[Rfam]
RNA: mir-10 microRNA precursor family
RNA sequence: CCGCCUAAACCCGUAGAUCCGAACUUGUGGUUGCUGAUUACAAGCUCGACUCUAUGGGGAUAGGCUGU
Numbered sequence: 001c002c003g004c005c006u007a008a009a010c011c012c013g014u015a016g017a018u019c020c021g022a023a024c025u026u027g028u029g030g031u032u033g034c035u036g037a038u039u040a041c042a043a044g045c046u047c048g049a050c051u052c053u054a055u056g057g058g059g060a061u062a063g064g065c066u067g068u
Stems, first nucleotide, its partner, number of pairs: 003065005010058003015053003020048003024044008